[Rfam]
The record is an 83-nucleotide sequence from Pelistega ratti, which matches "SucA RNA motif" in Rfam. Rfam links the family to the GO term regulation of translation. The match comes from Rfam's covariance-model search (42 bits). A reference for the family is Weinberg et al. (2007), "Identification of 22 candidate structured RNAs in bacteria using the CMfinder comparative genomics pipeline", Nucleic Acids Res.
RNA sequence: CCGCUAUCCGUAAUUCGGUUAAGCCGUAAAUCGGAAGGUUUUCCUGCAUCCAUAUGGUGAAACACUCAUAUAAAGGUGAAGCG
Numbered sequence: 001c002c003g004c005u006a007u008c009c010g011u012a013a014u015u016c017g018g019u020u021a022a023g024c025c026g027u028a029a030a031u032c033g034g035a036a037g038g039u040u041u042u043c044c045u046g047c048a049u050c051c052a053u054a055u056g057g058u059g060a061a062a063c064a065c066u067c068a069u070a071u072a073a074a075g076g077u078g079a080a081g082c083g
Stems, first nucleotide, its partner, number of pairs: 002083003007035004016026004037044002047078004053070003056066004
Dot-bracket structure: .(((..((((.....((((...)))).....)))).((....))..((((..(((((((...)))).)))....))))..)))